A member of the RNA family "Bacterial RNase P class A" from Amnibacterium setariae, 381 nucleotides long.
It scores 264 bits against the family's covariance model.
The source organism's lineage runs through Bacteria, Bacillati, Actinomycetes, Microbacteriaceae and Amnibacterium.
Rfam classes the family as a ribozyme.

RNA sequence: ACGGGCCGGCAGACGGUCGCGUCGCCGCUCCGCGAGGAGCGGCGCCGAGGAACGUCCGGGCUCCGCAGAGCAGGGCGGUGGGCAACACCCACCCGGGGAGACCCGAGAGCAAGUGCAACAGAGAGCAGACCGCCUCCGAGGACCUUCGGGGCCUCGGCGGUAAGGGUGAAACGGUGGUGUAAGAGACCACCAGGGGCCCGUGCGAGCGGGCUCGCUGGGUAAACCUCGCCCGGAGCAAGGUCGAACAGGGACCGAUUCGGCUGCUCGCCGAUGGUCCCGGGUGGACCGCUGGAGGGCCGUGGCAACACGUCCCCGAGACAGAUGGCCGUCACCGGCGCCUCGGCGCCGGUACAGAACCCGGCGUAUCGCCGGCCCGUUCUC
Numbered sequence: 001a002c003g004g005g006c007c008g009g010c011a012g013a014c015g016g017u018c019g020c021g022u023c024g025c026c027g028c029u030c031c032g033c034g035a036g037g038a039g040c041g042g043c044g045c046c047g048a049g050g051a052a053c054g055u056c057c058g059g060g061c062u063c064c065g066c067a068g069a070g071c072a073g074g075g076c077g078g079u080g081g082g083c084a085a086c087a088c089c090c091a092c093c094c095g096g097g098g099a100g101a102c103c104c105g106a107g108a109g110c111a112a113g114u115g116c117a118a119c120a121g122a123g124a125g126c127a128g129a130c131c132g133c134c135u136c137c138g139a140g141g142a143c144c145u146u147c148g149g150g151g152c153c154u155c156g157g158c159g160g161u162a163a164g165g166g167u168g169a170a171a172c173g174g175u176g177g178u179g180u181a182a183g184a185g186a187c188c189a190c191c192a193g194g195g196g197c198c199c200g201u202g203c204g205a206g207c208g209g210g211c212u213c214g215c216u217g218g219g220u221a222a223a224c225c226u227c228g229c230c231c232g233g234a235g236c237a238a239g240g241u242c243g244a245a246c247a248g249g250g251a252c253c254g255a256u257u258c259g260g261c262u263g264c265u266c267g268c269c270g271a272u273g274g275u276c277c278c279g280g281g282u283g284g285a286c287c288g289c290u291g292g293a294g295g296g297c298c299g300u301g302g303c304a305a306c307a308c309g310u311c312c313c314c315g316a317g318a319c320a321g322a323u324g325g326c327c328g329u330c331a332c333c334g335g336c337g338c339c340u341c342g343g344c345g346c347c348g349g350u351a352c353a354g355a356a357c358c359c360g361g362c363g364u365a366u367c368g369c370c371g372g373c374c375c376g377u378u379c380u381c
Stems, first nucleotide, its partner, number of pairs: 001377010011366001012330007020047002023044008052364003056361005061235004068266004073231005078092005093107001094105004108226002113224002115220002130165002132161003136157005173191006193215001194213008239287004248278006257271005294313003298309004